[Rfam]
RNA sequence: UGGAGUCAGCGCGACUGGCGGGACGAGGAUGGGUCACCAUCGGGAAGCCGGAUCGCGGGUGCCGACCGCCUGGGUGCCCGCC
Numbered sequence: 001u002g003g004a005g006u007c008a009g010c011g012c013g014a015c016u017g018g019c020g021g022g023a024c025g026a027g028g029a030u031g032g033g034u035c036a037c038c039a040u041c042g043g044g045a046a047g048c049c050g051g052a053u054c055g056c057g058g059g060u061g062c063c064g065a066c067c068g069c070c071u072g073g074g075u076g077c078c079c080g081c082c
Stems, first nucleotide, its partner, number of pairs: 003054002006051002009048001012047001015044002017070005029040004059077005

This 82-nucleotide RNA sequence from Pseudonocardia autotrophica belongs to the Rfam family "ZMP/ZTP riboswitch aptamer (pfl RNA motif)".
Pairs were carried over by alignment from the consensus structure, which is taken from published work.